This 114-nucleotide sequence from Actinia tenebrosa belongs to the Rfam family "Potassium channel RNA editing signal".
Rfam classes the family as a cis-regulatory element.
About the family: This family represents a group of sequences related to the human potassium channel Kv1.1 hairpin element which directs the efficient modification of an adenosine to inosine by an adenosine deaminase acting on RNA (ADAR).
The base pairs follow the family's consensus structure, which is taken from published work.
The source organism's lineage runs through Eukaryota, Opisthokonta, Hexacorallia, Actiniaria and Actinia.
[Rfam]
RNA sequence: CUAGGAUACGGAGAUCAUUAUCCCCAGACCUUAGCAGGAAAACUCGUGGGCGGCGCUCUGUCUAUCAUUGGGGUUUUAAUUCUCGCUUUGCCAGUAUUCUUGUUUGUAACCAAU
Numbered sequence: 001c002u003a004g005g006a007u008a009c010g011g012a013g014a015u016c017a018u019u020a021u022c023c024c025c026a027g028a029c030c031u032u033a034g035c036a037g038g039a040a041a042a043c044u045c046g047u048g049g050g051c052g053g054c055g056c057u058c059u060g061u062c063u064a065u066c067a068u069u070g071g072g073g074u075u076u077u078a079a080u081u082c083u084c085g086c087u088u089u090g091c092c093a094g095u096a097u098u099c100u101u102g103u104u105u106g107u108a109a110c111c112a113a114u
Base pairs, nucleotide, nucleotide: 002113004111005110007108008107009106010105011104014101019096020095021094037077038076039075040074049063050062